[Rfam]
This 375-nucleotide RNA from Mucilaginibacter pallidiroseus belongs to the Rfam family "Bacterial RNase P class A". It is annotated as a ribozyme. Taxonomically the source falls in Mucilaginibacter (Bacteria, Bacteroidota, Sphingobacteriia, Sphingobacteriales). The base pairs follow the family's consensus structure, which is taken from published work. About the family: Ribonuclease P (RNase P) is a ubiquitous endoribonuclease, found in archaea, bacteria and eukarya as well as chloroplasts and mitochondria.
RNA sequence: ACCGCAAAACGUUCUAUCGCUGCCCUGUUUGGGGCGGAGGAAAGUCCGGGCAACACAGAGCAUCCUGCUUCCUAACGGGAAGGCGCCGGCAGCCGGCGACAGCAAGUGCCACAGAGAAUAUACCGCCCGCAAGGGUAAGGGUGAAAACGUGAGGUAAGAGCUCACGGCUUUUCCGGGCGACCGGAAUUGCGGUAAACCUCAGGAGUUGAAAAACCAAAUAGGUUCUGAAAGCGGGGCUGCUCGCUCCCACUUACGGCUUUGGCUGUAAAGUUCAGAAUGGGUAGGUUGAUUGAAUUUGCCGGCGACGGUAAAACCAGAUUAAUGAUAGAAGCUCUGUAAAGAGUACAGAACCCGGCUUACAGAUUUGCUGCUGUA
Numbered sequence: 001a002c003c004g005c006a007a008a009a010c011g012u013u014c015u016a017u018c019g020c021u022g023c024c025c026u027g028u029u030u031g032g033g034g035c036g037g038a039g040g041a042a043a044g045u046c047c048g049g050g051c052a053a054c055a056c057a058g059a060g061c062a063u064c065c066u067g068c069u070u071c072c073u074a075a076c077g078g079g080a081a082g083g084c085g086c087c088g089g090c091a092g093c094c095g096g097c098g099a100c101a102g103c104a105a106g107u108g109c110c111a112c113a114g115a116g117a118a119u120a121u122a123c124c125g126c127c128c129g130c131a132a133g134g135g136u137a138a139g140g141g142u143g144a145a146a147a148c149g150u151g152a153g154g155u156a157a158g159a160g161c162u163c164a165c166g167g168c169u170u171u172u173c174c175g176g177g178c179g180a181c182c183g184g185a186a187u188u189g190c191g192g193u194a195a196a197c198c199u200c201a202g203g204a205g206u207u208g209a210a211a212a213a214c215c216a217a218a219u220a221g222g223u224u225c226u227g228a229a230a231g232c233g234g235g236g237c238u239g240c241u242c243g244c245u246c247c248c249a250c251u252u253a254c255g256g257c258u259u260u261g262g263c264u265g266u267a268a269a270g271u272u273c274a275g276a277a278u279g280g281g282u283a284g285g286u287u288g289a290u291u292g293a294a295u296u297u298g299c300c301g302g303c304g305a306c307g308g309u310a311a312a313a314c315c316a317g318a319u320u321a322a323u324g325a326u327a328g329a330a331g332c333u334c335u336g337u338a339a340a341g342a343g344u345a346c347a348g349a350a351c352c353c354g355g356c357u358u359a360c361a362g363a364u365u366u367g368c369u370g371c372u373g374u375a
Stems, first nucleotide, its partner, number of pairs: 002370001004368005010362001011360001012330007020037007042358003046355005051208004059264003063204005068082005083100001084098004101199002106197002108193003123140002125136004148166006171186006212287004222278006256271005295312007